RNA sequence: GAGACCCAGUGCUCCUCUGUUGAACUCAAAAGCAGUGUUGACUUCAACAGGAGCAAGACUGAGCCCU
Numbered sequence: 001g002a003g004a005c006c007c008a009g010u011g012c013u014c015c016u017c018u019g020u021u022g023a024a025c026u027c028a029a030a031a032g033c034a035g036u037g038u039u040g041a042c043u044u045c046a047a048c049a050g051g052a053g054c055a056a057g058a059c060u061g062a063g064c065c066c067u
Stems, first nucleotide, its partner, number of pairs: 003064001005063001007061004013055001015053003018049007026041004031036001